This 259-nucleotide RNA sequence from Peltaster fructicola belongs to the Rfam family "Fungal signal recognition particle RNA". The match comes from Rfam's covariance-model search (122 bits). The family has 50 seed sequences and 748 matches in Rfam 15.1. Gene Ontology terms of the family: signal recognition particle, endoplasmic reticulum targeting, SRP-dependent cotranslational protein targeting to membrane, signal sequence recognition and signal recognition particle, plasma membrane targeting.

[Rfam]
RNA sequence: AGCUGUAGUGGCUUUAGGUGAAGCGGUUCCGCGAUCGUCGCAAUCCUGCUCUAUCCAUCAAUGCGUGCCCAGUUCGAAUUCGGUGGUGGUCGUCCACUCGCUUGAGAAAUCAGCGAUUGCUGGCAUGGCCUUAAGCUUCUGAGACACCCUUCAGCCGAGAAAUCGGGCAGAGAAUCUCAGGCCAUGGAAUGGCGGUGCUGGACUACAUGCAUUGAUGGCGGAUUGUUGGUGGUUGAUCAUGGAAGUGUCAACACUUUUU
Number, nucleotide and partner (000 for none) at each position: 001a013002g012003c011004u000005g000006u000007a000008g000009u000010g000011g003012c002013u001014u000015u000016a256017g255018g254019u253020g252021a000022a000023g000024c000025g246026g000027u244028u243029c242030c241031g240032c000033g238034a237035u236036c235037g000038u229039c228040g226041c225042a224043a223044u222045c221046c220047u000048g000049c000050u000051c000052u000053a000054u000055c000056c000057a000058u217059c214060a213061a212062u211063g210064c209065g208066u207067g206068c000069c201070c200071a199072g198073u197074u195075c194076g193077a000078a190079u189080u188081c187082g000083g185084u184085g183086g182087u000088g130089g000090u128091c127092g126093u125094c123095c122096a121097c000098u116099c115100g114101c113102u112103u000104g111105a110106g000107a000108a000109a000110u105111c104112a102113g101114c100115g099116a098117u000118u000119g000120c000121u096122g095123g094124c000125a093126u092127g091128g090129c000130c088131u135132u000133a000134a000135g131136c000137u000138u181139c180140u179141g178142a177143g176144a175145c000146a000147c000148c000149c172150u171151u170152c000153a000154g000155c000156c165157g164158a163159g000160a000161a000162a000163u158164c157165g156166g000167g000168c000169a000170g151171a150172g149173a000174a000175u144176c143177u142178c141179a140180g139181g138182c086183c085184a084185u083186g000187g081188a080189a079190u078191g000192g000193c076194g075195g074196u000197g073198c072199u071200g070201g069202a000203c000204u000205a000206c067207a066208u065209g064210c063211a062212u061213u060214g059215a000216u000217g058218g000219c000220g046221g045222a044223u043224u042225g041226u040227u000228g039229g038230u000231g000232g000233u000234u000235g036236a035237u034238c033239a000240u031241g030242g029243a028244a027245g000246u025247g000248u000249c000250a000251a000252c020253a019254c018255u017256u016257u000258u000259u000

Rfam classes the family as a non-coding RNA gene.